About this RNA
A member of the RNA family "uup RNA" from Paenibacillus macerans, 48 nucleotides long. The match comes from Rfam's covariance-model search (60 bits).
RNA sequence: GAACACGCCGCUCCGUACAAAUGAACACGAUGAAGCGUUGUGCGGAGC
Numbered sequence: 001g002a003a004c005a006c007g008c009c010g011c012u013c014c015g016u017a018c019a020a021a022u023g024a025a026c027a028c029g030a031u032g033a034a035g036c037g038u039u040g041u042g043c044g045g046a047g048c
Base pairs, nucleotide, nucleotide: 011047012046013045014044015043017041018040019039
Background: It is annotated as a cis-regulatory element.